[Rfam]
RNA sequence: UACGAAUAUUACUUAAAACACACAUAUACCGUCACUUGUUAUCGGGGUGUCCAGAAUAUGGAUCGAUACAAGGGGUGUAUGGAGGCCUAAC
Numbered sequence: 001u002a003c004g005a006a007u008a009u010u011a012c013u014u015a016a017a018a019c020a021c022a023c024a025u026a027u028a029c030c031g032u033c034a035c036u037u038g039u040u041a042u043c044g045g046g047g048u049g050u051c052c053a054g055a056a057u058a059u060g061g062a063u064c065g066a067u068a069c070a071a072g073g074g075g076u077g078u079a080u081g082g083a084g085g086c087c088u089a090a091c
Stems, first nucleotide, its partner, number of pairs: 023081008035072005041067004049063005
Rfam assigns this 91-nucleotide RNA sequence from Alteromonas pelagimontana to the family "t44 RNA". On this family, see Tjaden et al., Nucleic Acids Res 2002: "Transcriptome analysis of Escherichia coli using high-density oligonucleotide probe arrays". It is annotated as a small RNA. The family's consensus secondary structure was predicted with LocARNA. About the family: This family consists of a number of bacterial RNA genes of between 135 and 170 bases in length. The t44 gene has been identified in several species of enteric bacteria but homologs have also been identified in Pseudomonas and Coxiella species.